Rfam assigns this 376-nucleotide RNA from Cryobacterium psychrotolerans to the family "transfer-messenger RNA". Taxonomically the source falls in Cryobacterium (Bacteria, Bacillati, Actinomycetota, Actinomycetes). The match comes from Rfam's covariance-model search (152 bits). The family is grouped with related families in Rfam's "tRNA clan".

RNA sequence: GGGGAUGAUCGGUUUCGACAUUGUUUGCGCAAUUGUGAGAAGCGGGUCGAGGAUGCAGGGUUAUCUCGUAAACGAUCUCUGCAAAACAAUAAGUGCCAAUUCAAAGCGCACUGACUUCGCUCUCGCUGCCUAAGCGAAAGCACUAACGAAGUCCGCCAGACCGGGAAUGCUCUCUACCCGGAUCCUGACGCCAUUUAGAGAGAUUGCUUCUACAUUGAGCCGCGGGGUGUAGAGGGACUUAAACGAGGGCUGGGCUCGUCGGAAUAGAUGCCAGUGGCAAAUUCCGGGGCCGAGUAAAACGACUUCACUGGAUACACCCGUAGAAGGCAUAUGACCACAGCAGUGGACCGGGGUUCAAUUCCCCGCAUCUCCACAG
Numbered sequence: 001g002g003g004g005a006u007g008a009u010c011g012g013u014u015u016c017g018a019c020a021u022u023g024u025u026u027g028c029g030c031a032a033u034u035g036u037g038a039g040a041a042g043c044g045g046g047u048c049g050a051g052g053a054u055g056c057a058g059g060g061u062u063a064u065c066u067c068g069u070a071a072a073c074g075a076u077c078u079c080u081g082c083a084a085a086a087c088a089a090u091a092a093g094u095g096c097c098a099a100u101u102c103a104a105a106g107c108g109c110a111c112u113g114a115c116u117u118c119g120c121u122c123u124c125g126c127u128g129c130c131u132a133a134g135c136g137a138a139a140g141c142a143c144u145a146a147c148g149a150a151g152u153c154c155g156c157c158a159g160a161c162c163g164g165g166a167a168u169g170c171u172c173u174c175u176a177c178c179c180g181g182a183u184c185c186u187g188a189c190g191c192c193a194u195u196u197a198g199a200g201a202g203a204u205u206g207c208u209u210c211u212a213c214a215u216u217g218a219g220c221c222g223c224g225g226g227g228u229g230u231a232g233a234g235g236g237a238c239u240u241a242a243a244c245g246a247g248g249g250c251u252g253g254g255c256u257c258g259u260c261g262g263a264a265u266a267g268a269u270g271c272c273a274g275u276g277g278c279a280a281a282u283u284c285c286g287g288g289g290c291c292g293a294g295u296a297a298a299a300c301g302a303c304u305u306c307a308c309u310g311g312a313u314a315c316a317c318c319c320g321u322a323g324a325a326g327g328c329a330u331a332u333g334a335c336c337a338c339a340g341c342a343g344u345g346g347a348c349c350g351g352g353g354u355u356c357a358a359u360u361c362c363c364c365g366c367a368u369c370u371c372c373a374c375a376g
Stems, first nucleotide, its partner, number of pairs: 001372007019345007034331004043320005048068005054083007119141003123137004154190002157187003162181001163179003170202006207235009218251004253291005260286003265280001267278001272311001275307003349365005